[Rfam]
RNA sequence: AGAAUCCUGAUGUGUUCGUGGUAUUACCUAAAGUUUUGACCAACAGCUUUACUACGGGAGAUUGAGUUUUCGAGUGGCGUAAAUGCCUUUGGCUUAGGACUUACAAAAGCUUGGAACAGAACACCCACCUGCUUAUGCGGGAUCAAAACGAAGGCAUCGAGCGACGGCACGAUUGGGAUUCUU
Numbered sequence: 001a002g003a004a005u006c007c008u009g010a011u012g013u014g015u016u017c018g019u020g021g022u023a024u025u026a027c028c029u030a031a032a033g034u035u036u037u038g039a040c041c042a043a044c045a046g047c048u049u050u051a052c053u054a055c056g057g058g059a060g061a062u063u064g065a066g067u068u069u070u071c072g073a074g075u076g077g078c079g080u081a082a083a084u085g086c087c088u089u090u091g092g093c094u095u096a097g098g099a100c101u102u103a104c105a106a107a108a109g110c111u112u113g114g115a116a117c118a119g120a121a122c123a124c125c126c127a128c129c130u131g132c133u134u135a136u137g138c139g140g141g142a143u144c145a146a147a148a149c150g151a152a153g154g155c156a157u158c159g160a161g162c163g164a165c166g167g168c169a170c171g172a173u174u175g176g177g178a179u180u181c182u183u
Stems, first nucleotide, its partner, number of pairs: 002181010012170004017166003033149003037145003040141002056126003060122001062120002067116001069115007081102002086098002